Shown here is a 95-nucleotide sequence from Triticum urartu, a member of the family "Small nucleolar RNA SNORD25".
By type it is a C/D-box small nucleolar RNA.
On this family, see Tycowski et al., Nature 1996: "A mammalian gene with introns instead of exons generating stable RNA products".
A search with the family's covariance model found it, with a score of 40 bits.
Pairs were carried over by alignment from the consensus structure, which was predicted with PFOLD.
[Rfam]
RNA sequence: GGCAACAAUGACUCAAUGAGAGUAUUAGCAGACUUGUAAUUAUUCUUACGGGAAUAAUCAGAAGAUUCAAAUCACAUCCAAGGGAUUGAGUUGUA
Numbered sequence: 001g002g003c004a005a006c007a008a009u010g011a012c013u014c015a016a017u018g019a020g021a022g023u024a025u026u027a028g029c030a031g032a033c034u035u036g037u038a039a040u041u042a043u044u045c046u047u048a049c050g051g052g053a054a055u056a057a058u059c060a061g062a063a064g065a066u067u068c069a070a071a072u073c074a075c076a077u078c079c080a081a082g083g084g085a086u087u088g089a090g091u092u093g094u095a
Stems, first nucleotide, its partner, number of pairs: 002094005